[Rfam]
RNA sequence: ACCGCGUACUUAUCUACUAUAUAGUAGCCGAGAUGCAUGCAUUUCUCCUGCUAUAUAGUAGGUGAGUACGCGGUUU
Numbered sequence: 001a002c003c004g005c006g007u008a009c010u011u012a013u014c015u016a017c018u019a020u021a022u023a024g025u026a027g028c029c030g031a032g033a034u035g036c037a038u039g040c041a042u043u044u045c046u047c048c049u050g051c052u053a054u055a056u057a058g059u060a061g062g063u064g065a066g067u068a069c070g071c072g073g074u075u076u
Base pairs, nucleotide, nucleotide: 001074002073003072004071005070006069007068008067009066010065011064012063013062014061015060017058018057019056020055021054022053023052024051025050026049027048030045031044033042034041035040
A member of the RNA family "mir-7563 microRNA precursor family" from Ameiurus melas, 76 nucleotides long. The family's consensus secondary structure was predicted with RNAalifold. The match comes from Rfam's covariance-model search (90 bits).